A member of the RNA family "Enterobacteria greA leader" from Sodalis-like symbiont of Philaenus spumarius, 123 nucleotides long. The family's RNA type in Rfam is cis-regulatory leader. The source organism's lineage runs through Bacteria, Pseudomonadota, Enterobacterales, Bruguierivoracaceae and Sodalis. A reference for the family is Naville and Gautheret (2010), "Premature terminator analysis sheds light on a hidden world of bacterial transcriptional attenuation", Genome Biol.

RNA sequence: GUCAUACUACGGUCAAACAGGGAUAUAGUAAACGAUGACCCACACCGAACUCUGCGGUAAAAUAUGUAUCAAAAUGCAACACUGAGGCUGGCCUGGGAAGCGAUUCCGGUGUCGCCCCCUUUU
Numbered sequence: 001g002u003c004a005u006a007c008u009a010c011g012g013u014c015a016a017a018c019a020g021g022g023a024u025a026u027a028g029u030a031a032a033c034g035a036u037g038a039c040c041c042a043c044a045c046c047g048a049a050c051u052c053u054g055c056g057g058u059a060a061a062a063u064a065u066g067u068a069u070c071a072a073a074a075u076g077c078a079a080c081a082c083u084g085a086g087g088c089u090g091g092c093c094u095g096g097g098a099a100g101c102g103a104u105u106c107c108g109g110u111g112u113c114g115c116c117c118c119c120u121u122u123u
Stems, first nucleotide, its partner, number of pairs: 001039005010034002014028001040047001056070004087116001089114004093109005